[Rfam]
RNA sequence: GGAGGCUGGUUUCAUGUGGUGGUUUAGAUUUAACUGCACAAUGUCUAGCACCAUAUGAAAUCAGUGUCCU
Numbered sequence: 001g002g003a004g005g006c007u008g009g010u011u012u013c014a015u016g017u018g019g020u021g022g023u024u025u026a027g028a029u030u031u032a033a034c035u036g037c038a039c040a041a042u043g044u045c046u047a048g049c050a051c052c053a054u055a056u057g058a059a060a061u062c063a064g065u066g067u068c069c070u
Base pairs, nucleotide, nucleotide: 001070002069004067005065006064007063008062009061010060011059012058013057014056016054017053018052019051020050021049025047026046027045028044